A member of the RNA family "RT-8 RNA", 85 nucleotides long.
[Rfam]
RNA sequence: AUGGUGUUUUAACACCCAGCUAUACUAAGGGCUGUAACAGAUUAUUCUGUUGGGACUACCGCAAUCCUAAGCCCUUAGUUUUGCU
Numbered sequence: 001a002u003g004g005u006g007u008u009u010u011a012a013c014a015c016c017c018a019g020c021u022a023u024a025c026u027a028a029g030g031g032c033u034g035u036a037a038c039a040g041a042u043u044a045u046u047c048u049g050u051u052g053g054g055a056c057u058a059c060c061g062c063a064a065u066c067c068u069a070a071g072c073c074c075u076u077a078g079u080u081u082u083g084c085u
Base pairs, nucleotide, nucleotide: 003016004015005014006013007012026077027076028075029074030073031072032071033070036051037050038049039048040047041046